[Rfam]
RNA sequence: CGGGGGGAUAGGGUCGCUCCCGAAAAGGCGGUUCCCUUGCCGCCCCUUCCCCCGGCUUCCCAAGAAGG
Numbered sequence: 001c002g003g004g005g006g007g008a009u010a011g012g013g014u015c016g017c018u019c020c021c022g023a024a025a026a027g028g029c030g031g032u033u034c035c036c037u038u039g040c041c042g043c044c045c046c047u048u049c050c051c052c053c054g055g056c057u058u059c060c061c062a063a064g065a066a067g068g
Stems, first nucleotide, its partner, number of pairs: 001054008011021003027044005034068002037065002
Rfam assigns this 68-nucleotide RNA from Desulfosarcina widdelii to the family "int-alpA RNA". The base pairs follow the family's consensus structure, which is taken from published work. From the family's description: Acidobacteria (1 example), Planctomycetes (1 example), Proteobacteria. The family has 167 seed sequences and 577 matches in Rfam 15.1.